RNA sequence: GAACCGAUGUGUAACUGGCGUAAACAUGGGGUACCAUGAGGGAGCACAUUGUGAACAGCCGUACGCCUGGGCAAAGUAU
Numbered sequence: 001g002a003a004c005c006g007a008u009g010u011g012u013a014a015c016u017g018g019c020g021u022a023a024a025c026a027u028g029g030g031g032u033a034c035c036a037u038g039a040g041g042g043a044g045c046a047c048a049u050u051g052u053g054a055a056c057a058g059c060c061g062u063a064c065g066c067c068u069g070g071g072c073a074a075a076g077u078a079u
Stems, first nucleotide, its partner, number of pairs: 005051008015041002017067005026037004058072003
A member of the RNA family "ZMP/ZTP riboswitch aptamer (pfl RNA motif)" from Paenibacillus ferrarius, 79 nucleotides long. The base pairs follow the family's consensus structure, which is taken from published work.